[Rfam]
RNA sequence: ACGGCUCCGGUUCACCCCGGUCACCACUUGGGGACCCGGCGGCC
Numbered sequence: 001a002c003g004g005c006u007c008c009g010g011u012u013c014a015c016c017c018c019g020g021u022c023a024c025c026a027c028u029u030g031g032g033g034a035c036c037c038g039g040c041g042g043c044c
Stems, first nucleotide, its partner, number of pairs: 003044003007039004015033005020027002
RNA: L31-Actinobacteria ribosomal protein leader
Organism: Labedaea rhizosphaerae